[Rfam]
Purine riboswitch aptamer: a 99-nucleotide RNA from Gracilibacillus dipsosauri. Rfam's curators write: Riboswitches are metabolite binding domains within certain messenger RNAs that serve as precision sensors for their corresponding targets. Allosteric rearrangement of mRNA structure is mediated by ligand binding, and this results in modulation of gene expression. A class of riboswitches that selectively recognises guanine and becomes saturated at concentrations as low as 5 nM. In Bacillus subtilis, this mRNA motif is located on at least five separate transcriptional units that together encode 17 genes that are mostly involved in purine transport and purine nucleotide biosynthesis. It has also been shown that some members of this family are specific for adenine instead. The base pairs follow the family's consensus structure, which is taken from published work. NCBI's taxonomy places the organism under Bacteria, Bacillota, Bacilli, Bacillaceae, Gracilibacillus.

RNA sequence: UACAAUUGAAAAUGAUGACCUCAUAUAAUUUGGGAAUAUGGCCCAAGAGUUUCUACCCAUCACCGUAAAAGAUGGACUAUGAGGGAAGAUGUAAAAAAG
Numbered sequence: 001u002a003c004a005a006u007u008g009a010a011a012a013u014g015a016u017g018a019c020c021u022c023a024u025a026u027a028a029u030u031u032g033g034g035a036a037u038a039u040g041g042c043c044c045a046a047g048a049g050u051u052u053c054u055a056c057c058c059a060u061c062a063c064c065g066u067a068a069a070a071g072a073u074g075g076a077c078u079a080u081g082a083g084g085g086a087a088g089a090u091g092u093a094a095a096a097a098a099g
Base pairs, nucleotide, nucleotide: 019084020083021082022081023080024079025078029047030046031045032044033043034042057075058074059073060072061071